[Rfam]
Nucleotides: 087
Base pairs, nucleotide, nucleotide: 002086004084005083006082007081
Number, partner (000 for none) and nucleotide at each position: 001000c002086u003000g004084g005083g006082g007081a008000a009000g010000u011000g012000a013000u014000g015000a016000u017000a018000a019000g020000u021000u022000a023000u024000a025000u026000c027000a028000a029000u030000a031000u032000g033000u034000c035000a036000u037000a038000g039000g040000c041000a042000c043000a044000u045000g046000c047000a048000a049000u050000g051000c052000u053000g054000a055000a056000c057000a058000a059000a060000c061000a062000u063000a064000u065000u066000u067000g068000c069000a070000c071000g072000u073000c074000a075000g076000u077000c078000u079000g080000a081007u082006c083005c084004c085000a086002a087000u